[Rfam]
RNA sequence: CACAGUUUGUUAACAUGUUUCAAUAUAACGCCGGCGAUAUGGGCCGGCAGUCUCUACCGGGCAAGCCGUAAACCGUCCCGACUAUUGAAACAGCACGCCGCAGC
Numbered sequence: 001c002a003c004a005g006u007u008u009g010u011u012a013a014c015a016u017g018u019u020u021c022a023a024u025a026u027a028a029c030g031c032c033g034g035c036g037a038u039a040u041g042g043g044c045c046g047g048c049a050g051u052c053u054c055u056a057c058c059g060g061g062c063a064a065g066c067c068g069u070a071a072a073c074c075g076u077c078c079c080g081a082c083u084a085u086u087g088a089a090a091c092a093g094c095a096c097g098c099c100g101c102a103g104c
Base pairs, nucleotide, nucleotide: 018090019089020088021087022086023085024084025083030048031047032046033045034044035043058080059079060078061077065073

Shown here is a 104-nucleotide RNA sequence from Ruthenibacterium lactatiformans, a member of the family "Purine riboswitch aptamer".
The organism belongs to Ruthenibacterium, within Bacteria.
For this family Rfam cites "Riboswitches Control Fundamental Biochemical Pathways in Bacillus subtilis and Other Bacteria" (Mandal et al., Cell, 2003).
Its family is annotated with purine nucleobase biosynthetic process in the Gene Ontology.